Shown here is a 153-nucleotide RNA from Histoplasma mississippiense, a member of the family "A. fumigatus sRNA Afu_254".
Rfam classes the family as a small RNA.
Lineage of the source: Eukaryota > Dikarya > Ascomycota > Eurotiomycetes > Histoplasma.
The base pairs follow the family's consensus structure, which was predicted with WAR.

Nucleotides: 153
Base pairs, nucleotide, nucleotide: 087111088110089109094104095103096102115140116139117138124131125130
Number, partner (000 for none) and nucleotide at each position: 001000u002000c003000a004000u005000a006000c007000a008000u009000c010000c011000a012000a013000a014000c015000g016000c017000a018000a019000c020000u021000u022000a023000a024000a025000u026000a027000u028000c029000u030000u031000g032000a033000c034000c035000g036000a037000a038000u039000u040000u041000u042000c043000a044000a045000g046000c047000a048000a049000a050000c051000u052000c053000a054000c055000c056000a057000c058000c059000c060000a061000a062000a063000c064000c065000c066000a067000c068000u069000c070000a071000u072000c073000c074000a075000a076000a077000a078000a079000u080000g081000u082000c083000u084000c085000c086000c087111u088110g089109c090000a091000a092000c093000u094104g095103c096102a097000a098000c099000u100000g101000c102096u103095g104094c105000u106000c107000u108000g109089g110088u111087g112000a113000c114000u115140g116139c117138a118000a119000c120000u121000c122000c123000u124131g125130c126000g127000g128000c129000u130125g131124c132000g133000g134000c135000a136000g137000c138117u139116g140115c141000a142000g143000u144000g145000u146000a147000a148000g149000u150000u151000a152000a153000u